[Rfam]
The record is a 288-nucleotide RNA sequence from Betacoronavirus cameli, which matches "Betacoronavirus 5'UTR" in Rfam. Taxonomically the source falls in Middle East respiratory syndrome-related coronavirus (Viruses, Pisuviricota, Pisoniviricetes, Betacoronavirus). The base pairs follow the family's consensus structure. Gene Ontology term of the family: viral RNA genome replication. About the family: The first 150 to 200 nucleotides within the 5' UTR of betacoronaviruses are highly structured and shown to be conserved on a structure level among betacoronaviruses. The family is grouped with related families in Rfam's "Coronavirus 5' UTR".
RNA sequence: GAUUUAAGUGAAUAGCCUAGCUAUCUCACGCCCCCCUCUCGUUCUCUUGAAGAACUUUGAUUUUAACGAACUUAAAUAAAAGCCCUGUUGCAAAGUGUACUGUCGUGGUUCGCCAGACAUAUGCGCUGCAUUGGGUACAAUACUAAUUAAAUACUAUUUUUCAUUCUGAGCGGCGUGUCUCUUGUACAUCCCGGUCACAAUACCCAGUUCCGUCUGGUGCGUGACAAUCCGGGGCACACCAUGUCUUCCGUGGCUGGUGUGGUCGCGCAAGGUGCGCGCGACAUGUAU
Numbered sequence: 001g002a003u004u005u006a007a008g009u010g011a012a013u014a015g016c017c018u019a020g021c022u023a024u025c026u027c028a029c030g031c032c033c034c035c036c037u038c039u040c041g042u043u044c045u046c047u048u049g050a051a052g053a054a055c056u057u058u059g060a061u062u063u064u065a066a067c068g069a070a071c072u073u074a075a076a077u078a079a080a081a082g083c084c085c086u087g088u089u090g091c092a093a094a095g096u097g098u099a100c101u102g103u104c105g106u107g108g109u110u111c112g113c114c115a116g117a118c119a120u121a122u123g124c125g126c127u128g129c130a131u132u133g134g135g136u137a138c139a140a141u142a143c144u145a146a147u148u149a150a151a152u153a154c155u156a157u158u159u160u161u162c163a164u165u166c167u168g169a170g171c172g173g174c175g176u177g178u179c180u181c182u183u184g185u186a187c188a189u190c191c192c193g194g195u196c197a198c199a200a201u202a203c204c205c206a207g208u209u210c211c212g213u214c215u216g217g218u219g220c221g222u223g224a225c226a227a228u229c230c231g232g233g234g235c236a237c238a239c240c241a242u243g244u245c246u247u248c249c250g251u252g253g254c255u256g257g258u259g260u261g262g263u264c265g266c267g268c269a270a271g272g273u274g275c276g277c278g279c280g281a282c283a284u285g286u287a288u
Stems, first nucleotide, its partner, number of pairs: 008029003012024005041055005082136004090129003095124005101119003175187002200218002205216003235261007243254003